[Rfam]
A member of the RNA family "TPP riboswitch aptamer (THI element)", 96 nucleotides long. A search with the family's covariance model found it, with a score of 58 bits. From the family's description: Vitamin B(1) in its active form thiamin pyrophosphate (TPP) is an essential coenzyme that is synthesised by coupling of pyrimidine and thiazole moieties in bacteria.
RNA sequence: CACCUGAAGCGGGGGUGCCUUGAUCUGCCAGGCUGAGAGAGUACCUUGGAACCUGAUCCGGUUUGCACCGGCGUAGGGAGCUUUGAGCCGCAGCCA
Dot-bracket structure: .....((((((((..(((((.........))))......)...))).....((((..((((......))))..))))..)))))............